[Rfam]
RNA: MIR168 microRNA precursor family
Organism: Gossypium hirsutum
RNA sequence: UUACCGGCGGUCUCUAAUUCGCUUGGUGCAGGUCGGGAACUAAUUAGCUGUCCCUUAAUAUUGGAUUGAUUUUGAUUUUGAUUUAAGCCAGAUGGCUGGGCGUGAUUGGAGGAAGCGCGAAUCGGAUCCCGCCUUGCAUCAACUGAAUCGGAGACCGCGGUGAAG
Number, nucleotide and partner (000 for none) at each position: 001u000002u000003a000004c000005c000006g000007g000008c000009g000010g000011u000012c000013u152014c151015u000016a000017a148018u147019u146020c145021g000022c000023u142024u141025g140026g139027u138028g137029c136030a135031g134032g133033u000034c131035g130036g129037g128038a127039a000040c125041u124042a000043a000044u000045u000046a000047g000048c000049u000050g000051u000052c000053c000054c000055u000056u000057a000058a000059u000060a000061u000062u000063g000064g000065a000066u000067u000068g000069a000070u000071u000072u000073u000074g000075a000076u000077u000078u000079u000080g000081a000082u000083u000084u000085a000086a000087g000088c000089c000090a000091g000092a000093u000094g000095g000096c000097u000098g000099g000100g000101c000102g000103u000104g000105a000106u000107u000108g000109g000110a000111g000112g000113a000114a000115g000116c000117g000118c000119g000120a000121a000122u000123c000124g041125g040126a000127u038128c037129c036130c035131g034132c000133c032134u031135u030136g029137c028138a027139u026140c025141a024142a023143c000144u000145g020146a019147a018148u017149c000150g000151g014152a013153g000154a000155c000156c000157g000158c000159g000160g000161u000162g000163a000164a000165g000